Description: Rfam assigns this 146-nucleotide RNA sequence from Orbus hercynius to the family "Bacterial antisense RNA HPnc0260". For this family Rfam cites "The primary transcriptome of the major human pathogen Helicobacter pylori" (Sharma et al., Nature, 2010). The organism belongs to Orbus, within Bacteria. A search with the family's covariance model found it, with a score of 72 bits.
[Rfam]
RNA sequence: AAAUCUUAAGUAUUAGAUAAAUUAAUAUUAAAUUAGUGUGAAUUUAAUCUAAGUAAAUAAUGAAUUUAAUAAAACGCUACGAACCAUUGCCGUUAAAGGCUUUAGAAUGGUACGCCCGAGUGGACUCGAACCACCGACCCCCACCA
Numbered sequence: 001a002a003a004u005c006u007u008a009a010g011u012a013u014u015a016g017a018u019a020a021a022u023u024a025a026u027a028u029u030a031a032a033u034u035a036g037u038g039u040g041a042a043u044u045u046a047a048u049c050u051a052a053g054u055a056a057a058u059a060a061u062g063a064a065u066u067u068a069a070u071a072a073a074a075c076g077c078u079a080c081g082a083a084c085c086a087u088u089g090c091c092g093u094u095a096a097a098g099g100c101u102u103u104a105g106a107a108u109g110g111u112a113c114g115c116c117c118g119a120g121u122g123g124a125c126u127c128g129a130a131c132c133a134c135c136g137a138c139c140c141c142c143a144c145c146a
Base pairs, nucleotide, nucleotide: 014040015039020034021033022032023031054068055067056066108143109142110141117136118135120134121133122132123131